[Rfam]
RNA sequence: ACAUGUACGCAACGGCUUCCUGGCGCGUGAACCGUAAUUAUUGGAGCA
Numbered sequence: 001a002c003a004u005g006u007a008c009g010c011a012a013c014g015g016c017u018u019c020c021u022g023g024c025g026c027g028u029g030a031a032c033c034g035u036a037a038u039u040a041u042u043g044g045a046g047c048a
Stems, first nucleotide, its partner, number of pairs: 004031001006029005013022002015047003019044002
RNA: SAM/SAH riboswitch aptamer